[Rfam]
RNA: Fluoride riboswitch aptamer (crcB RNA motif)
Organism: Pseudorhodoplanes sinuspersici
RNA sequence: AUCGAUGAUGGGGAUGGAGUCCCCCGAAACUGCCGCAGAGGCUGAUGACUCCUAUCGCGUU
Numbered sequence: 001a002u003c004g005a006u007g008a009u010g011g012g013g014a015u016g017g018a019g020u021c022c023c024c025c026g027a028a029a030c031u032g033c034c035g036c037a038g039a040g041g042c043u044g045a046u047g048a049c050u051c052c053u054a055u056c057g058c059g060u061u
Stems, first nucleotide, its partner, number of pairs: 010025004016052006032042003